The record is a 73-nucleotide sequence from Myotis davidii, which matches "mir-9193 microRNA precursor family" in Rfam. Rfam 15.1 lists 6,008 matches to the family in 8 species. The family's consensus secondary structure was predicted with RNAalifold. Taxonomically the source falls in Myotis (Eukaryota, Deuterostomia, Eutheria, Yangochiroptera).

RNA sequence: CUCGGAGAGGGGAGUCCCUCAGCCAGGAUUGUGAGAAGGUGCAGGCCAGGCCAAGGGGCCCCACUGGUGCACG
Numbered sequence: 001c002u003c004g005g006a007g008a009g010g011g012g013a014g015u016c017c018c019u020c021a022g023c024c025a026g027g028a029u030u031g032u033g034a035g036a037a038g039g040u041g042c043a044g045g046c047c048a049g050g051c052c053a054a055g056g057g058g059c060c061c062c063a064c065u066g067g068u069g070c071a072c073g
Stems, first nucleotide, its partner, number of pairs: 004070001006068001008065002011062002014059006022051003026047002029044005